The record is a 141-nucleotide sequence, which matches "IMES-2 RNA motif" in Rfam. The literature on the family includes a 2009 paper in Nature by Weinberg et al., "Exceptional structured noncoding RNAs revealed by bacterial metagenome analysis".
[Rfam]
RNA sequence: AAAUUAAUUAAGAGGCAACUCUUAACUGGCCAGUUGAGGAAAAACCGAGAGGUUCAAGCUCAGCGGGCAGAAAGUCUGAGACAGUAGAACUAAACAACUCAGGUGACUGGUUACGAAGGUAGUUCUCUAACAGCGUACCAA
Numbered sequence: 001a002a003a004u005u006a007a008u009u010a011a012g013a014g015g016c017a018a019c020u021c022u023u024a025a026c027u028g029g030c031c032a033g034u035u036g037a038g039g040a041a042a043a044a045c046c047g048a049g050a051g052g053u054u055c056a057a058g059c060u061c062a063g064c065g066g067g068c069a070g071a072a073a074g075u076c077u078g079a080g081a082c083a084g085u086a087g088a089a090c091u092a093a094a095c096a097a098c099u100c101a102g103g104u105g106a107c108u109g110g111u112u113a114c115g116a117a118g119g120u121a122g123u124u125c126u127c128u129a130a131c132a133g134c135g136u137a138c139c140a141a
Stems, first nucleotide, its partner, number of pairs: 008025007026070003030067002033064006043054004074104007087125005109139002112137004118131001